Rfam assigns this 83-nucleotide RNA from Leucobacter ruminantium to the family "ZMP/ZTP riboswitch aptamer (pfl RNA motif)". The source organism's lineage runs through Bacteria, Bacillati, Actinomycetes, Microbacteriaceae and Leucobacter.
RNA sequence: GUUCUCCGUCGUGACUGGCGUGCAGGUGGGUGACCACCGGGGAGCGACGAAUUCGUACAAGGCCGCUCGCCUGGGCCGCAGGA
Numbered sequence: 001g002u003u004c005u006c007c008g009u010c011g012u013g014a015c016u017g018g019c020g021u022g023c024a025g026g027u028g029g030g031u032g033a034c035c036a037c038c039g040g041g042g043a044g045c046g047a048c049g050a051a052u053u054c055g056u057a058c059a060a061g062g063c064c065g066c067u068c069g070c071c072u073g074g075g076c077c078g079c080a081g082g083a
Stems, first nucleotide, its partner, number of pairs: 005051001007049006015041002017071004026037004061077004